[Rfam]
RNA sequence: CCAUUUUUAUGUGAUAUAUCACUGUUUAGUUAUGACUAGUCCACAUAUGACUGUUUAAAAGCACCUAUUACAUCAAGUCCGAGUAGUGUCCGACUACAUCUAACCCUUCAAAAUUAUGAUUUUUAUAAAC
Numbered sequence: 001c002c003a004u005u006u007u008u009a010u011g012u013g014a015u016a017u018a019u020c021a022c023u024g025u026u027u028a029g030u031u032a033u034g035a036c037u038a039g040u041c042c043a044c045a046u047a048u049g050a051c052u053g054u055u056u057a058a059a060a061g062c063a064c065c066u067a068u069u070a071c072a073u074c075a076a077g078u079c080c081g082a083g084u085a086g087u088g089u090c091c092g093a094c095u096a097c098a099u100c101u102a103a104c105c106c107u108u109c110a111a112a113a114u115u116a117u118g119a120u121u122u123u124u125a126u127a128a129a130c
Stems, first nucleotide, its partner, number of pairs: 004128002007125001009122001012119001014117002019112001024100001027096005
Dot-bracket structure: ...((.(.(..(.((...(....(..(((((............................................................)))))...)...........)...)).)..)..).))..
Background
This 130-nucleotide RNA from Populus trichocarpa belongs to the Rfam family "MIR480 microRNA precursor family". The family's consensus secondary structure was predicted with WAR. The match comes from Rfam's covariance-model search (48 bits).